[Rfam]
RNA sequence: ACCUCCUACAAAGGCAGGUCUUUGGUUUCCUGUCUUUGGAGAUGUAAGAAUUGGAAGAAAAGAUAUAUGGACUUGGAGAAGUCUAGGGCCAGCUUGCUCCCUUCCGGCUCAGGAUUAAUCAUCCCACAUAG
Numbered sequence: 001a002c003c004u005c006c007u008a009c010a011a012a013g014g015c016a017g018g019u020c021u022u023u024g025g026u027u028u029c030c031u032g033u034c035u036u037u038g039g040a041g042a043u044g045u046a047a048g049a050a051u052u053g054g055a056a057g058a059a060a061a062g063a064u065a066u067a068u069g070g071a072c073u074u075g076g077a078g079a080a081g082u083c084u085a086g087g088g089c090c091a092g093c094u095u096g097c098u099c100c101c102u103u104c105c106g107g108c109u110c111a112g113g114a115u116u117a118a119u120c121a122u123c124c125c126a127c128a129u130a131g
Base pairs, nucleotide, nucleotide: 002057004055005054006053015044016043019040020039021038024030025029069124070123071122073121091109092108093107094106096104